c-di-GMP-I riboswitch aptamer: an 86-nucleotide RNA from Azotobacter chroococcum. Lineage of the source: Bacteria > Pseudomonadati > Pseudomonadota > Pseudomonadales > Azotobacter chroococcum.

[Rfam]
RNA sequence: AACUGAAAAAGGCAAAACCAUCGAAAGAUGGCGACGCAAAGUCUCCGGUCUAAAGGAAAUUUUCCGAUGAUAGCGGGACCGCCAGU
Numbered sequence: 001a002a003c004u005g006a007a008a009a010a011g012g013c014a015a016a017a018c019c020a021u022c023g024a025a026a027g028a029u030g031g032c033g034a035c036g037c038a039a040a041g042u043c044u045c046c047g048g049u050c051u052a053a054a055g056g057a058a059a060u061u062u063u064c065c066g067a068u069g070a071u072a073g074c075g076g077g078a079c080c081g082c083c084a085g086u
Stems, first nucleotide, its partner, number of pairs: 012037002018031005041079003045076003048071003055065004

Overview: The literature on the family includes a 2007 paper in Nucleic Acids Res by Weinberg et al., "Identification of 22 candidate structured RNAs in bacteria using the CMfinder comparative genomics pipeline". The base pairs follow the family's consensus structure, which is taken from published work.